[Rfam]
RNA sequence: GAAUUAGAAAAAGCUCCUGUAUACAGAUUGGGCAAUUAAAAAUUGAAGAUUAGGCCUAGGGAAAAAUCCCUCUCAGCGAAGGCCGAAAAGAGGCUAGCCAUGCCCUUAGUAGGACUAGCAAAAUGAGAGGGGUAGCAACAGUGGUGAGUUCAUUGGAUGGCUGAAGCCCUGAGUACAGGGUAGUCGUCAGUGGUUCGACACCUCGGAAAGAAGGUCUCGAGAUGCCACGUGGACGAGGGCAUGCCCACAGCACAUCUUAACCUGGACGGGGGUCGCCCAGGUAAAAGCAGUUUAACUAACUGUUAUGGACACAGCCUGAUAGGGUGCUGCAGAGGCCCACUGCAUUGCUACUAAAAAUCUCUGCUGUACAUGGCAC
Numbered sequence: 001g002a003a004u005u006a007g008a009a010a011a012a013g014c015u016c017c018u019g020u021a022u023a024c025a026g027a028u029u030g031g032g033c034a035a036u037u038a039a040a041a042a043u044u045g046a047a048g049a050u051u052a053g054g055c056c057u058a059g060g061g062a063a064a065a066a067u068c069c070c071u072c073u074c075a076g077c078g079a080a081g082g083c084c085g086a087a088a089a090g091a092g093g094c095u096a097g098c099c100a101u102g103c104c105c106u107u108a109g110u111a112g113g114a115c116u117a118g119c120a121a122a123a124u125g126a127g128a129g130g131g132g133u134a135g136c137a138a139c140a141g142u143g144g145u146g147a148g149u150u151c152a153u154u155g156g157a158u159g160g161c162u163g164a165a166g167c168c169c170u171g172a173g174u175a176c177a178g179g180g181u182a183g184u185c186g187u188c189a190g191u192g193g194u195u196c197g198a199c200a201c202c203u204c205g206g207a208a209a210g211a212a213g214g215u216c217u218c219g220a221g222a223u224g225c226c227a228c229g230u231g232g233a234c235g236a237g238g239g240c241a242u243g244c245c246c247a248c249a250g251c252a253c254a255u256c257u258u259a260a261c262c263u264g265g266a267c268g269g270g271g272g273u274c275g276c277c278c279a280g281g282u283a284a285a286a287g288c289a290g291u292u293u294a295a296c297u298a299a300c301u302g303u304u305a306u307g308g309a310c311a312c313a314g315c316c317u318g319a320u321a322g323g324g325u326g327c328u329g330c331a332g333a334g335g336c337c338c339a340c341u342g343c344a345u346u347g348c349u350a351c352u353a354a355a356a357a358u359c360u361c362u363g364c365u366g367u368a369c370a371u372g373g374c375a376c
Base pairs, nucleotide, nucleotide: 001016069130070129071128072127073126074125076119077118081116082115083113084112088107089106090105092104093103094102131352132351133350134349135348136347137346139342140341141340142339143338144337145313146312148310149309150308151307152306153305155257156256157255158254159253160251161250162249163248166181167180168179169178170177171176184236185235186234187233188232190228191227192226193225194224195220196219197218198217200215201214202213203212237246238245239244260282261281262280263279264278265277267275268274269273288302289301290300291299292298314325315324316323317322327366329364330363331362332361333360334359
Dot-bracket structure: (..............)....................................................((((((.((...((((...(((.(((.......))))))....)).)).)).....))))))(((((((.((((((((.((((((.(((((((((..((((((....))))))..(((((.(((((((((.((((........)))).))))...)))))...)))))(((....))).)))).)))))..((((((.(((...))).)))))).....(((((.....)))))..)))))).))((((....)))).[.[[[[[[..))))))...)))))))......]]]]]].]..........